L31-Actinobacteria ribosomal protein leader: a 46-nucleotide sequence from Actinacidiphila glaucinigra.
RNA sequence: UCGGCCCCGGUUCACGUGACGCAAGCCCGCGGCACGACCCGGGACC
Numbered sequence: 001u002c003g004g005c006c007c008c009g010g011u012u013c014a015c016g017u018g019a020c021g022c023a024a025g026c027c028c029g030c031g032g033c034a035c036g037a038c039c040c041g042g043g044a045c046c
Stems, first nucleotide, its partner, number of pairs: 003046002007042004015036004020031003

Taxonomically the source falls in Actinacidiphila (Bacteria, Bacillati, Actinomycetota, Streptomycetaceae). The match comes from Rfam's covariance-model search (39 bits).